[Rfam]
RNA sequence: CUCUUAUCUAGAGUGGCUGAGGGACUGGCCCGAUGACGCCCGGCAACCUUUAAACAACGGUUUUAAAAGGUGCUAAUUCCAGCAAAGCAAAUCUGCUUUGAGAGAUGAGAG
Numbered sequence: 001c002u003c004u005u006a007u008c009u010a011g012a013g014u015g016g017c018u019g020a021g022g023g024a025c026u027g028g029c030c031c032g033a034u035g036a037c038g039c040c041c042g043g044c045a046a047c048c049u050u051u052a053a054a055c056a057a058c059g060g061u062u063u064u065a066a067a068a069g070g071u072g073c074u075a076a077u078u079c080c081a082g083c084a085a086a087g088c089a090a091a092u093c094u095g096c097u098u099u100g101a102g103a104g105a106u107g108a109g110a111g
Stems, first nucleotide, its partner, number of pairs: 001111008013041001015040003021031003025082004042074004047070002049066002052063001078103001083100006
A member of the RNA family "SAM riboswitch aptamer (S box leader)" from Allobacillus sp. SKP2-8, 111 nucleotides long. Lineage of the source: Bacteria > Bacillota > Bacilli > Bacillaceae > Allobacillus. The base pairs follow the family's consensus structure, which is taken from published work.